[Rfam]
The record is a 136-nucleotide sequence from Lynx pardinus, which matches "Small nucleolar RNA SNORA5" in Rfam. Rfam links the family to the GO terms nucleolus and RNA processing. ACA5 is a member of the H/ACA class of snoRNA that guide the sites of modification of uridines to pseudouridines. The source organism's lineage runs through Eukaryota, Tetrapoda, Theria, Eutheria and Lynx. The family's RNA type in Rfam is H/ACA-box small nucleolar RNA. Clan: SNORA5 clan. The family has 6 seed sequences and 2,226 matches in Rfam 15.1.
Nucleotides: 136
Stems, first nucleotide, its partner, number of pairs: 002061004018047004023042001025040004074128006086114003090110002
Number, partner (000 for none) and nucleotide at each position: 001000g002061g003060c004059a005058g006000u007000c008000a009000a010000g011000u012000c013000a014000a015000a016000u017000u018047c019046g020045g021044c022000c023042c024000c025040c026039g027038c028037u029000c030000c031000u032000g033000u034000u035000g036000u037028a038027g039026c040025g041000a042023g043000a044021g045020c046019u047018g048000g049000c050000c051000c052000a053000g054000a055000u056000g057000g058005c059004u060003g061002c062000c063000a064000c065000a066000g067000g068000a069000a070000a071000c072000u073000c074128g075127c076126a077125g078124c079123u080000c081000a082000u083000g084000g085000g086114c087113u088112c089000c090110g091109g092000g093000u094000c095000c096000c097000c098000u099000g100000c101000c102000c103000u104000g105000g106000g107000a108000c109091c110090c111000g112088g113087g114086g115000a116000u117000a118000a119000g120000u121000u122000u123079g124078g125077c126076u127075g128074c129000a130000g131000a132000c133000a134000g135000g136000c